RNA sequence: AGCCUCCUGAUGCUUACCACUGGCUAUGUUUUUACAUGGAAUGUGCAGAAAGAGAAAGCAGAGUAAACCCACCAAAUAUACCUCAGCCCAGGCCCUUUGCCUGGUUUUUACUGUGAAUGGGGGGACACUA
Numbered sequence: 001a002g003c004c005u006c007c008u009g010a011u012g013c014u015u016a017c018c019a020c021u022g023g024c025u026a027u028g029u030u031u032u033u034a035c036a037u038g039g040a041a042u043g044u045g046c047a048g049a050a051a052g053a054g055a056a057a058g059c060a061g062a063g064u065a066a067a068c069c070c071a072c073c074a075a076a077u078a079u080a081c082c083u084c085a086g087c088c089c090a091g092g093c094c095c096u097u098u099g100c101c102u103g104g105u106u107u108u109u110a111c112u113g114u115g116a117a118u119g120g121g122g123g124g125a126c127a128c129u130a
Stems, first nucleotide, its partner, number of pairs: 002059002005056001007054002020043001026037004072122002076118002085107002088104006
Rfam assigns this 130-nucleotide RNA from Mustela putorius to the family "Small nucleolar RNA SNORA51". The organism belongs to Mustela putorius, within Eukaryota. About the family: ACA51 is a member of the H/ACA class of snoRNA that guide the sites of modification of uridines to pseudouridines. The family has 9 seed sequences and 2,121 matches in Rfam 15.1. It is annotated as an H/ACA-box small nucleolar RNA.